[Rfam]
RNA: Small nucleolar RNA Z13/snr52
RNA sequence: AAAAUCACUGUGAUGAUCAAUUUUCGGAUGUAAAAUGAAAGACCCAAUAGGGCUUUCAAACCAUCCGAGAGCGCAUAAAACCGUGUGGAUGUUUCCGUUGCCUUCCUACUGAGAUUU
Numbered sequence: 001a002a003a004a005u006c007a008c009u010g011u012g013a014u015g016a017u018c019a020a021u022u023u024u025c026g027g028a029u030g031u032a033a034a035a036u037g038a039a040a041g042a043c044c045c046a047a048u049a050g051g052g053c054u055u056u057c058a059a060a061c062c063a064u065c066c067g068a069g070a071g072c073g074c075a076u077a078a079a080a081c082c083g084u085g086u087g088g089a090u091g092u093u094u095c096c097g098u099u100g101c102c103u104u105c106c107u108a109c110u111g112a113g114a115u116u117u
Stems, first nucleotide, its partner, number of pairs: 003116003025097004